[Rfam]
RNA sequence: CCCAGGGCGUUGCCCUGGGCUGAGGAAUCUCGCCCCUUCAGGGCG
Dot-bracket structure: ((((((((...))))))))............((((.....)))).
The record is a 45-nucleotide RNA from Gemmata sp. SH-PL17, which matches "Acido-Lenti-1 RNA" in Rfam. The match comes from Rfam's covariance-model search (38 bits).